RNA sequence: UGGGCAGAUUAUUGUAUUCGACUGUAUUCACGACGUGAAAUAGGGGAUUAUACUGUUUUUAAACGGAAAGUGAAUCAAUUAACAUACUCAACAAACUCA
Numbered sequence: 001u002g003g004g005c006a007g008a009u010u011a012u013u014g015u016a017u018u019c020g021a022c023u024g025u026a027u028u029c030a031c032g033a034c035g036u037g038a039a040a041u042a043g044g045g046g047a048u049u050a051u052a053c054u055g056u057u058u059u060u061a062a063a064c065g066g067a068a069a070g071u072g073a074a075u076c077a078a079u080u081a082a083c084a085u086a087c088u089c090a091a092c093a094a095a096c097u098c099a
Stems, first nucleotide, its partner, number of pairs: 002098003009090001011088001013086003017082002020080002023077002026075006034065003037059007